Rfam assigns this 173-nucleotide sequence from Silurus meridionalis to the family "Small nucleolar RNA SNORA81".
By type it is an H/ACA-box small nucleolar RNA.
The base pairs follow the family's consensus structure, which was predicted with WAR.
RNA sequence: ACACUGAUACAUCAUCAGCGCCUCUGCUUUUUUUCUCAUACAUUUACUCUGUAAAUGUAUGAGAAAAAAAGCAGAGAAGCCAAGAGAAGCCAAGAAGUAGCUCUCAGUUUCAAAAAGGUUGGUGACCCCUGUUUUAGGGUUCACCAACCUUUUUGAAACUGAGAGCUACUUCU
Numbered sequence: 001a002c003a004c005u006g007a008u009a010c011a012u013c014a015u016c017a018g019c020g021c022c023u024c025u026g027c028u029u030u031u032u033u034u035c036u037c038a039u040a041c042a043u044u045u046a047c048u049c050u051g052u053a054a055a056u057g058u059a060u061g062a063g064a065a066a067a068a069a070a071g072c073a074g075a076g077a078a079g080c081c082a083a084g085a086g087a088a089g090c091c092a093a094g095a096a097g098u099a100g101c102u103c104u105c106a107g108u109u110u111c112a113a114a115a116a117g118g119u120u121g122g123u124g125a126c127c128c129c130u131g132u133u134u135u136a137g138g139g140u141u142c143a144c145c146a147a148c149c150u151u152u153u154u155g156a157a158a159c160u161g162a163g164a165g166c167u168a169c170u171u172c173u
Stems, first nucleotide, its partner, number of pairs: 018080002022076004031070004037061002040058008099167009119147001121145001123143002125140001

The match comes from Rfam's covariance-model search (49 bits). The organism belongs to Silurus, within Eukaryota.